[Rfam]
RNA sequence: GGCACUGUAUGGUAUCUGCAGCCAGUUGCUGCCUUAACUGGUUUGUUCAAAACUCAGUGCUAGAAAAACCCGACAUCUGGCAUCGUUGGUCUCCUUACCUGGUUAUGUUUGGAGUCCUGGUAUAUCUGUCGGAACACAC
Numbered sequence: 001g002g003c004a005c006u007g008u009a010u011g012g013u014a015u016c017u018g019c020a021g022c023c024a025g026u027u028g029c030u031g032c033c034u035u036a037a038c039u040g041g042u043u044u045g046u047u048c049a050a051a052a053c054u055c056a057g058u059g060c061u062a063g064a065a066a067a068a069c070c071c072g073a074c075a076u077c078u079g080g081c082a083u084c085g086u087u088g089g090u091c092u093c094c095u096u097a098c099c100u101g102g103u104u105a106u107g108u109u110u111g112g113a114g115u116c117c118u119g120g121u122a123u124a125u126c127u128g129u130c131g132g133a134a135c136a137c138a139c
Stems, first nucleotide, its partner, number of pairs: 002060006014054001017051001018046004023041001024039005064127001066125001068123001070120003079109005
Small nucleolar RNA SNORA8: a 139-nucleotide RNA sequence from Myripristis murdjan. ACA8 is a member of the H/ACA class of snoRNA that guide the sites of modification of uridines to pseudouridines. Lineage of the source: Eukaryota > Eumetazoa > Euteleostomi > Osteoglossocephalai > Myripristis. Rfam 15.1 lists 1,490 matches to the family in 610 species. By type it is an H/ACA-box small nucleolar RNA.